Rfam assigns this 70-nucleotide RNA from Litoreibacter arenae to the family "L2-Alphaproteobacteria ribosomal protein leader". Rfam classes the family as a cis-regulatory leader. The source organism's lineage runs through Bacteria, Pseudomonadota, Alphaproteobacteria, Rhodobacterales and Litoreibacter arenae.
[Rfam]
RNA sequence: GGGGACCUUCGGGGCCCUAUAAACACAAGCGGCGGGGCGACCCGUUUGCUGCAACAACGGAAGACAGAAA
Numbered sequence: 001g002g003g004g005a006c007c008u009u010c011g012g013g014g015c016c017c018u019a020u021a022a023a024c025a026c027a028a029g030c031g032g033c034g035g036g037g038c039g040a041c042c043c044g045u046u047u048g049c050u051g052c053a054a055c056a057a058c059g060g061a062a063g064a065c066a067g068a069a070a
Stems, first nucleotide, its partner, number of pairs: 001018004006014003028050005033044004